Rfam assigns this 80-nucleotide sequence from Alligator mississippiensis to the family "Mammalian CPEB3 ribozyme". The base pairs follow the family's consensus structure, which is taken from published work. NCBI's taxonomy places the organism under Eukaryota, Vertebrata, Archosauria, Alligatorinae, Alligator.
[Rfam]
RNA sequence: AGAGGCCACAAGCUUGAGGCCAUAGCAGAAGUGCUUAUGGCAUAGCCCUGUUAGAUUCCAACUAAUCUGUGAUUUCUGCU
Numbered sequence: 001a002g003a004g005g006c007c008a009c010a011a012g013c014u015u016g017a018g019g020c021c022a023u024a025g026c027a028g029a030a031g032u033g034c035u036u037a038u039g040g041c042a043u044a045g046c047c048c049u050g051u052u053a054g055a056u057u058c059c060a061a062c063u064a065a066u067c068u069g070u071g072a073u074u075u076c077u078g079c080u
Base pairs, nucleotide, nucleotide: 016048018047019046020045024080025079026078027077028076029075030074031043032042033041052069053068054067055066056065057064